[Rfam]
RNA sequence: CCAACGGCUCUUUUAAGAGCCACCCAAAUUUUUAAAAUGGCUUGA
Numbered sequence: 001c002c003a004a005c006g007g008c009u010c011u012u013u014u015a016a017g018a019g020c021c022a023c024c025c026a027a028a029u030u031u032u033u034a035a036a037a038u039g040g041c042u043u044g045a
Stems, first nucleotide, its partner, number of pairs: 006021006
Notes: This 45-nucleotide sequence from Sciurus carolinensis belongs to the Rfam family "Histone 3' UTR stem-loop". The base pairs follow the family's consensus structure, which is taken from published work. The mRNAs of metazoan histone genes lack a poly-A tail. 3' end processing occurs at a site between a highly conserved stem-loop (modelled by this family) and a purine rich region around 20 nts downstream (the histone downstream element, or HDE). By type it is a cis-regulatory element. Taxonomically the source falls in Sciurus (Eukaryota, Tetrapoda, Theria, Rodentia).